[Rfam]
RNA sequence: AGACGUCACAAGGUCAAGGCCACAGCAGAAGUGCUCACAGCGCAGCCCAGUCUGAUUCCAACAAAUCUGCAAAUUCUGCU
Number, nucleotide and partner (000 for none) at each position: 001a000002g000003a000004c000005g000006u000007c000008a000009c000010a000011a000012g000013g048014u000015c000016a000017a000018g047019g046020c045021c000022a000023c000024a080025g079026c078027a077028g076029a075030a074031g043032u042033g041034c000035u000036c000037a000038c000039a000040g000041c033042g032043c031044a000045g020046c019047c018048c013049a000050g000051u000052c069053u000054g067055a066056u065057u064058c000059c000060a000061a000062c000063a000064a057065a056066u055067c054068u000069g052070c000071a000072a000073a000074u030075u029076c028077u027078g026079c025080u024
RNA: Mammalian CPEB3 ribozyme